[Rfam]
RNA sequence: ACUUCCCGAGCCGGAACGAAAAGCAGGUUAAGAUUUUGCGAGGAAUCGUAGCGUGUUAGCAGGCUUUUGGCUUGUGGUCGUGAUGUUGUGUUUGCAAUUUGAUCUGACCUUUUUUCAGAUCGUACUUAAUUCCUGUAGAUUUACCCUGUCUGUCCAAAAUUUUAAUAGCACCGCAAAUGCGGUGCUUUUUUUU
Dot-bracket structure: ........((((..((....((((..(((((.((..................)).)))))..)))))))))).............................((((((.......))))))..................(((......................)))((((((((....)))))))).......
The family of this 193-nucleotide sequence from Erwinia sp. OLSSP12 is "GcvB RNA".
The base pairs follow the family's consensus structure, which is taken from published work.
From the family's description: The gcvB gene encodes a small untranslated RNA involved in expression of the dipeptide and oligopeptide transport systems in Escherichia coli. Included several unknown homologues in alignment (Bateman A pers obs). It base-pairs with SorC. This interaction triggers the degradation of GcvB by RNase E, alleviating the GcvB-mediated mRNA repression of other amino acid-related transport and metabolic genes.
Lineage of the source: Bacteria > Pseudomonadati > Pseudomonadota > Erwiniaceae > Erwinia.
For this family Rfam cites "The gcvB gene encodes a small untranslated RNA involved in expression of the dipeptide and oligopeptide transport systems in Escherichia coli" (Urbanowski et al., Mol Microbiol, 2000).